[Rfam]
RNA sequence: CCAGAUCUCUAUCGUUUCUUACGGUAAAGAGAAGCCAGCUGUACUGGGUCAUGACGAAUCAGCGUAUGCUAAAAACCGUCGUGCCGUACUGGUAUACUAAGAGAAUCACAUGAUUAGUAACUUCAGACUUCACGUGUUG
Numbered sequence: 001c002c003a004g005a006u007c008u009c010u011a012u013c014g015u016u017u018c019u020u021a022c023g024g025u026a027a028a029g030a031g032a033a034g035c036c037a038g039c040u041g042u043a044c045u046g047g048g049u050c051a052u053g054a055c056g057a058a059u060c061a062g063c064g065u066a067u068g069c070u071a072a073a074a075a076c077c078g079u080c081g082u083g084c085c086g087u088a089c090u091g092g093u094a095u096a097c098u099a100a101g102a103g104a105a106u107c108a109c110a111u112g113a114u115u116a117g118u119a120a121c122u123u124c125a126g127a128c129u130u131c132a133c134g135u136g137u138u139g
Stems, first nucleotide, its partner, number of pairs: 001047004007041001014035007054138001057135001062130001065127001067125002075118002078115001079113005086106002089103002

This 139-nucleotide sequence from Erwinia billingiae belongs to the Rfam family "CpoB/ybgF ICR thermometer". The match comes from Rfam's covariance-model search (133 bits). By type it is an RNA thermoregulator. The base pairs follow the family's consensus structure. Lineage of the source: Bacteria > Pseudomonadota > Enterobacterales > Erwiniaceae > Erwinia.